[Rfam]
RNA sequence: AAAAAGUCAUCAAAAUAAAAGUUGUAGAACUAGUCAAGAUCUCCCAUUUUUAUUUUAGUCAUUUUUUCAUAUGACAAAGUAAUAGUAACAUUGUUCAUAAAUUUUACAUAUCUCUGAUAUAGUUUAUGAAACUAUAUGAGAGAUAUGUAAAAUUUAUGAACAAUGUUACUAUUACUUUGUCAGAUGAAUAAAUGAUCAAAAUAAAAGUUGUAGAUCUUGAUGAGUUGUACAACUUGUAUAUUCAUGGCUUUAUCAACUAAAAUC
Numbered sequence: 001a002a003a004a005a006g007u008c009a010u011c012a013a014a015a016u017a018a019a020a021g022u023u024g025u026a027g028a029a030c031u032a033g034u035c036a037a038g039a040u041c042u043c044c045c046a047u048u049u050u051u052a053u054u055u056u057a058g059u060c061a062u063u064u065u066u067u068c069a070u071a072u073g074a075c076a077a078a079g080u081a082a083u084a085g086u087a088a089c090a091u092u093g094u095u096c097a098u099a100a101a102u103u104u105u106a107c108a109u110a111u112c113u114c115u116g117a118u119a120u121a122g123u124u125u126a127u128g129a130a131a132c133u134a135u136a137u138g139a140g141a142g143a144u145a146u147g148u149a150a151a152a153u154u155u156a157u158g159a160a161c162a163a164u165g166u167u168a169c170u171a172u173u174a175c176u177u178u179g180u181c182a183g184a185u186g187a188a189u190a191a192a193u194g195a196u197c198a199a200a201a202u203a204a205a206a207g208u209u210g211u212a213g214a215u216c217u218u219g220a221u222g223a224g225u226u227g228u229a230c231a232a233c234u235u236g237u238a239u240a241u242u243c244a245u246g247g248c249u250u251u252a253u254c255a256a257c258u259a260a261a262a263u264c
Base pairs, nucleotide, nucleotide: 003251004250005249006248007247008246009245010244012242013241015239016238019235020234021233022232023231024230025229026228028226029225030224031223033221034220035219036218037217038216039215040214041213042212044210046208047207048206049205050204051203052202053201054200055199056198058196059195060194061193062192063191064190066188067187068186069185070184072182073181074180075179076178077177078176079175080174081173083171084170085169086168087167088166090164091163092162093161094160095159096158097157098156099155100154101153103151104150106148107147108146109145110144111143120134121133122132123131124130125129
RNA: MIR821 microRNA precursor family
Organism: Sorghum bicolor